[Rfam]
RNA sequence: AUGGGAUCGAGGAUGUGAAAAAGAAUUUAUCCGAGUUCUGAAAUUUCCACAUUGGAAAUGUAGAUUACUUUUUUCUAUAGCUGAGAUCCCAU
Numbered sequence: 001a002u003g004g005g006a007u008c009g010a011g012g013a014u015g016u017g018a019a020a021a022a023g024a025a026u027u028u029a030u031c032c033g034a035g036u037u038c039u040g041a042a043a044u045u046u047c048c049a050c051a052u053u054g055g056a057a058a059u060g061u062a063g064a065u066u067a068c069u070u071u072u073u074u075c076u077a078u079a080g081c082u083g084a085g086a087u088c089c090c091a092u
Base pairs, nucleotide, nucleotide: 001092002091003090004089005088006087007086
Overview: The record is a 92-nucleotide RNA from Nicotiana attenuata, which matches "Small nucleolar RNA snoR27" in Rfam. The family's RNA type in Rfam is C/D-box small nucleolar RNA. It scores 45 bits against the family's covariance model. For this family Rfam cites "Multiple snoRNA gene clusters from Arabidopsis" (Brown et al., RNA, 2001). Lineage of the source: Eukaryota > Viridiplantae > Gunneridae > Solanales > Nicotiana.